This 115-nucleotide RNA from Mesobacillus persicus belongs to the Rfam family "SAM riboswitch aptamer (S box leader)".
RNA sequence: CUCUUAUCGAGAGCGGCGGAGGGACAUGGCCCGAUGAAGCCCGGCAACCUUCAAGGAAUAAAUCCUUGAAAAGGUGCUAAUUCCUGCAGGCAGAUUUCUGCCUGAAAGAUGAGGG
Numbered sequence: 001c002u003c004u005u006a007u008c009g010a011g012a013g014c015g016g017c018g019g020a021g022g023g024a025c026a027u028g029g030c031c032c033g034a035u036g037a038a039g040c041c042c043g044g045c046a047a048c049c050u051u052c053a054a055g056g057a058a059u060a061a062a063u064c065c066u067u068g069a070a071a072a073g074g075u076g077c078u079a080a081u082u083c084c085u086g087c088a089g090g091c092a093g094a095u096u097u098c099u100g101c102c103u104g105a106a107a108g109a110u111g112a113g114g115g
Base pairs, nucleotide, nucleotide: 001115002114003113004112005111006110007109008108013042015041016040017039021032022031023030028084029083043078044077045076046075048074049073050070051069052068053067054066055065056064082107087104088103089102090101091100092099
Dot-bracket structure: ((((((((....(.(((...(((....[[)))......))))((((.(((((((((.......)))))))..))))))...(]]..((((((......))))))..)))))))))

The match comes from Rfam's covariance-model search (94 bits).